[Rfam]
RNA sequence: AUACUUACCUGGCAGGGGAGACACCAUGAUCAGACAGGUGGUUUUCCCAGGGCGAGGCUCAUCCCCUGCUCUCCGGGUGUGCUGACCCCUGCGAUUUCCCCAAAUGCAGGAAACUCGACUGCAUAAUUUGUGGUAGUGGGUUUUGUUUUUUUUUUUUCUUU
Numbered sequence: 001a002u003a004c005u006u007a008c009c010u011g012g013c014a015g016g017g018g019a020g021a022c023a024c025c026a027u028g029a030u031c032a033g034a035c036a037g038g039u040g041g042u043u044u045u046c047c048c049a050g051g052g053c054g055a056g057g058c059u060c061a062u063c064c065c066c067u068g069c070u071c072u073c074c075g076g077g078u079g080u081g082c083u084g085a086c087c088c089c090u091g092c093g094a095u096u097u098c099c100c101c102a103a104a105u106g107c108a109g110g111a112a113a114c115u116c117g118a119c120u121g122c123a124u125a126a127u128u129u130g131u132g133g134u135a136g137u138g139g140g141u142u143u144u145g146u147u148u149u150u151u152u153u154u155u156u157u158c159u160u161u
Base pairs, nucleotide, nucleotide: 012122013121014120015119016048017047018046019045020044021043023042024041025040026039027038049090050089051088052087054086056083057082058081060079061078062077063076064075092117093116094115095113096112097111099109138160139159140158145152
Overview: U1 spliceosomal RNA: a 161-nucleotide sequence from Merops nubicus. The base pairs follow the family's consensus structure, which is taken from published work. Rfam links the family to the GO terms mRNA 5'-splice site recognition, U1 snRNP and pre-mRNA 5'-splice site binding. The family has 100 seed sequences and 40,184 matches in Rfam 15.1. The source organism's lineage runs through Eukaryota, Opisthokonta, Vertebrata, Gnathostomata and Merops. Its Rfam clan is "U1 clan".